[Rfam]
The family of this 80-nucleotide sequence from Castor canadensis is "mir-598 microRNA precursor family".
RNA sequence: GAUGAUGCUGGUGGUGAUGCUGAUGGCGUGAGCUGGAAAUGAGGUGCUACGUCAUCGUCAUCAUCACCAUCAUCAUCAUC
Numbered sequence: 001g002a003u004g005a006u007g008c009u010g011g012u013g014g015u016g017a018u019g020c021u022g023a024u025g026g027c028g029u030g031a032g033c034u035g036g037a038a039a040u041g042a043g044g045u046g047c048u049a050c051g052u053c054a055u056c057g058u059c060a061u062c063a064u065c066a067c068c069a070u071c072a073u074c075a076u077c078a079u080c
Base pairs, nucleotide, nucleotide: 001077003075004074005073006072007071009069010068011067012066013065014064015063016062017061021060022059023058024057025056026055028053029051030050031048032047033046

It scores 95 bits against the family's covariance model.